[Rfam]
RNA sequence: GUCAUUCAGGUAACCCACUCCUCCUCCCAAGGGUUGCCUGACGGAACAGCGGCACUCCUCCUCCCAGCCGUUGUUCAACUCUUUCGAAAGCCUGCCGCACCUCCUCCCGCGGCAGGCUUUUUCG
Numbered sequence: 001g002u003c004a005u006u007c008a009g010g011u012a013a014c015c016c017a018c019u020c021c022u023c024c025u026c027c028c029a030a031g032g033g034u035u036g037c038c039u040g041a042c043g044g045a046a047c048a049g050c051g052g053c054a055c056u057c058c059u060c061c062u063c064c065c066a067g068c069c070g071u072u073g074u075u076c077a078a079c080u081c082u083u084u085c086g087a088a089a090g091c092c093u094g095c096c097g098c099a100c101c102u103c104c105u106c107c108c109g110c111g112g113c114a115g116g117c118u119u120u121u122u123c124g
Stems, first nucleotide, its partner, number of pairs: 007040010044076010088119011

Description
The record is a 124-nucleotide RNA sequence from Rhizobium sp. BK376, which matches "Alphaproteobacterial ar14" in Rfam. The match comes from Rfam's covariance-model search (110 bits). Taxonomically the source falls in Rhizobium (Bacteria, Pseudomonadota, Alphaproteobacteria, Hyphomicrobiales). Smr14C2 was renamed NfeR1 (Nodule Formation Efficiency RNA) highly expressed in salt stress and during the symbiotic interaction on legume roots. It is annotated as a small RNA.